Record summary: Rfam assigns this 216-nucleotide RNA sequence from Erythrobacter litoralis to the family "permuted transfer-messenger RNA". The literature on the family includes a 2010 paper in RNA Biol by Mao et al., "Variations on the tmRNA gene". The base pairs follow the family's consensus structure, which is taken from published work. Rfam links the family to the GO term RNA catabolic process.
RNA sequence: GGUGAUAAACUGCGGUGUGUAAUAGACGCAACGGACCCGGGGGCAGUACCCGGCGGCUCCACCAAAAAGCGCAUAUUUACAGGCGCUUCCUGAUGGGGCCGAACCAGGAUCGACGUGUGUUGAAAGGCAUUGUUUUCACCCGGGCUGAGUAUCCCGCAAAACUGUUCAAAACACACAAGUGCCAACGAUAACGAAGCACUCGCUCUCGCAGCGUAA
Numbered sequence: 001g002g003u004g005a006u007a008a009a010c011u012g013c014g015g016u017g018u019g020u021a022a023u024a025g026a027c028g029c030a031a032c033g034g035a036c037c038c039g040g041g042g043g044c045a046g047u048a049c050c051c052g053g054c055g056g057c058u059c060c061a062c063c064a065a066a067a068a069g070c071g072c073a074u075a076u077u078u079a080c081a082g083g084c085g086c087u088u089c090c091u092g093a094u095g096g097g098g099c100c101g102a103a104c105c106a107g108g109a110u111c112g113a114c115g116u117g118u119g120u121u122g123a124a125a126g127g128c129a130u131u132g133u134u135u136u137c138a139c140c141c142g143g144g145c146u147g148a149g150u151a152u153c154c155c156g157c158a159a160a161a162c163u164g165u166u167c168a169a170a171a172c173a174c175a176c177a178a179g180u181g182c183c184a185a186c187g188a189u190a191a192c193g194a195a196g197c198a199c200u201c202g203c204u205c206u207c208g209c210a211g212c213g214u215a216a
Stems, first nucleotide, its partner, number of pairs: 001140005015130004027119003031116003037053005054101007141156004